The record is a 75-nucleotide sequence from Candidatus Izimoplasma sp. HR2, which matches "c-di-GMP-I riboswitch aptamer" in Rfam. Rfam links the family to the GO term cyclic-di-GMP binding. The organism belongs to Candidatus Izemoplasma, within Bacteria. It scores 53 bits against the family's covariance model.
RNA sequence: GUUUGAUAAAGCUAAAACCGGAGCGAUCCGGUGACAGAAAACUAUAGGGUCUCAAUGAGAUUGCCAGUUACCUUA
Numbered sequence: 001g002u003u004u005g006a007u008a009a010a011g012c013u014a015a016a017a018c019c020g021g022a023g024c025g026a027u028c029c030g031g032u033g034a035c036a037g038a039a040a041a042c043u044a045u046a047g048g049g050u051c052u053c054a055a056u057g058a059g060a061u062u063g064c065c066a067g068u069u070a071c072c073u074u075a
Stems, first nucleotide, its partner, number of pairs: 012037002017032006040069004047065002049061003